The family of this 103-nucleotide RNA sequence from Gossypium harknessii is "Small nucleolar RNA Z279/snoR105/snoR108". It is annotated as a C/D-box small nucleolar RNA. Rfam describes the family as follows. This family includes the plant snoRNAs known as Z279, snoR105 and snoR108.
Nucleotides: 103
Base pairs, nucleotide, nucleotide: 001103002102003101004100014094015093016092017091023039024038025037026036027035042082043081044080045079046078047077048076060075062073063072
Number, partner (000 for none) and nucleotide at each position: 001103g002102g003101g004100a005000u006000a007000u008000g009000a010000u011000g012000a013000g014094u015093g016092g017091u018000c019000a020000u021000u022000a023039c024038u025037c026036g027035c028000a029000a030000g031000g032000c033000a034000u035027g036026c037025g038024g039023g040000a041000u042082g043081a044080g045079u046078g047077u048076c049000c050000g051000c052000c053000c054000c055000a056000a057000c058000g059000c060075c061000u062073g063072g064000u065000u066000a067000c068000g069000a070000c071000a072063c073062u074000u075060g076048g077047g078046c079045a080044c081043u082042c083000c084000c085000c086000u087000u088000g089000u090000c091017a092016c093015c094014a095000c096000c097000u098000g099000a100004u101003c102002c103001c
About this RNA: Lineage of the source: Eukaryota > malvids > Malvaceae > Malvoideae > Gossypium. Rfam links the family to the GO terms RNA processing and nucleolus.